[Rfam]
RNA sequence: AAGGAAACACGAUGAACAAAGUGAAUUCGUCACGUCCUGUGACAACGUCGAUCUGACCCACGUCGUGUGGG
Numbered sequence: 001a002a003g004g005a006a007a008c009a010c011g012a013u014g015a016a017c018a019a020a021g022u023g024a025a026u027u028c029g030u031c032a033c034g035u036c037c038u039g040u041g042a043c044a045a046c047g048u049c050g051a052u053c054u055g056a057c058c059c060a061c062g063u064c065g066u067g068u069g070g071g
Stems, first nucleotide, its partner, number of pairs: 011053003016048002029043005057071005
Rfam assigns this 71-nucleotide sequence from Pontibacillus marinus to the family "Bacillaceae-1 RNA". Rfam 15.1 lists 5,721 matches to the family in 247 species. The match comes from Rfam's covariance-model search (45 bits). The family's consensus secondary structure is taken from published work.